Glycine riboswitch aptamer: a 104-nucleotide RNA sequence from Desulforamulus ruminis. The organism belongs to Desulforamulus ruminis, within Bacteria. The pairing is the family consensus, mapped onto this sequence.
[Rfam]
RNA sequence: AUGAUGGCCGUGGGAGAGACCCUUGCGGGGGCGCCGAAGGAGCAAACCGGUUUCUUGAGGGAGAAACCCGUUAAACUCUCAGGCAAAAGGACUGUGGCCGGACG
Numbered sequence: 001a002u003g004a005u006g007g008c009c010g011u012g013g014g015a016g017a018g019a020c021c022c023u024u025g026c027g028g029g030g031g032c033g034c035c036g037a038a039g040g041a042g043c044a045a046a047c048c049g050g051u052u053u054c055u056u057g058a059g060g061g062a063g064a065a066a067c068c069c070g071u072u073a074a075a076c077u078c079u080c081a082g083g084c085a086a087a088a089g090g091a092c093u094g095u096g097g098c099c100g101g102a103c104g
Base pairs, nucleotide, nucleotide: 006099007098008097009096010095011094012093013092020031021030022029023028033084034083035082036080037079040078041077042076046071047070